Pseudomon-Rho RNA: a 101-nucleotide RNA sequence from Stutzerimonas nosocomialis. Pairs were carried over by alignment from the consensus structure, which is taken from published work. The match comes from Rfam's covariance-model search (72 bits).
RNA sequence: UUCGGCACUGCGGCGCUUCUUUCGUCGCCCCCUGCAUGCCGUCGCCGACGCACUCCUGCCCGACUGAGUACAGCGAACCUGUUCGCUGCCUGCUGCGCGGC
Numbered sequence: 001u002u003c004g005g006c007a008c009u010g011c012g013g014c015g016c017u018u019c020u021u022u023c024g025u026c027g028c029c030c031c032c033u034g035c036a037u038g039c040c041g042u043c044g045c046c047g048a049c050g051c052a053c054u055c056c057u058g059c060c061c062g063a064c065u066g067a068g069u070a071c072a073g074c075g076a077a078c079c080u081g082u083u084c085g086c087u088g089c090c091u092g093c094u095g096c097g098c099g100g101c
Stems, first nucleotide, its partner, number of pairs: 010028006038101004043097003047093001073086005